[Rfam]
RNA sequence: UUGGAACAUCAAGAGAGAGCUCUGCUCCGCCAACCUGCCGACCCAGGCAAGGUGGUGACCCUGGAACCAGGGGAUGUGGCCAGCCCGGCAACCAAUUGGGUACCC
Numbered sequence: 001u002u003g004g005a006a007c008a009u010c011a012a013g014a015g016a017g018a019g020c021u022c023u024g025c026u027c028c029g030c031c032a033a034c035c036u037g038c039c040g041a042c043c044c045a046g047g048c049a050a051g052g053u054g055g056u057g058a059c060c061c062u063g064g065a066a067c068c069a070g071g072g073g074a075u076g077u078g079g080c081c082a083g084c085c086c087g088g089c090a091a092c093c094a095a096u097u098g099g100g101u102a103c104c105c
Stems, first nucleotide, its partner, number of pairs: 006077005015028001017027004029056003034052003037048003041101005079089003
This 105-nucleotide RNA sequence from Pseudohaliea rubra belongs to the Rfam family "SAM-I/IV (S-adenosyl methionine) riboswitch aptamer". A search with the family's covariance model found it, with a score of 61 bits. Lineage of the source: Bacteria > Pseudomonadati > Gammaproteobacteria > Pseudohaliea > Pseudohaliea rubra.